[Rfam]
RNA sequence: UAAAAGGGUCGGUUGCCUAAAUAUGCCACGCUCACCCUCGUCUGGUGGGUGCUGUAUGGCUAUCAAGACAUACGGCCGACAUAAUUUGUGGAACCCCAAUAGGGUUGGCUCGCUUGGCCAACCCUCUAC
Numbered sequence: 001u002a003a004a005a006g007g008g009u010c011g012g013u014u015g016c017c018u019a020a021a022u023a024u025g026c027c028a029c030g031c032u033c034a035c036c037c038u039c040g041u042c043u044g045g046u047g048g049g050u051g052c053u054g055u056a057u058g059g060c061u062a063u064c065a066a067g068a069c070a071u072a073c074g075g076c077c078g079a080c081a082u083a084a085u086u087u088g089u090g091g092a093a094c095c096c097c098a099a100u101a102g103g104g105u106u107g108g109c110u111c112g113c114u115u116g117g118c119c120a121a122c123c124c125u126c127u128a129c
Stems, first nucleotide, its partner, number of pairs: 008080005014028002017025001029051008052075007098127001103123008
This 129-nucleotide RNA from Theobroma umbraticum belongs to the Rfam family "U11 spliceosomal RNA". Lineage of the source: Eukaryota > eudicotyledons > Gunneridae > Byttnerioideae > Theobroma. It scores 70 bits against the family's covariance model. By type it is a spliceosomal small nuclear RNA.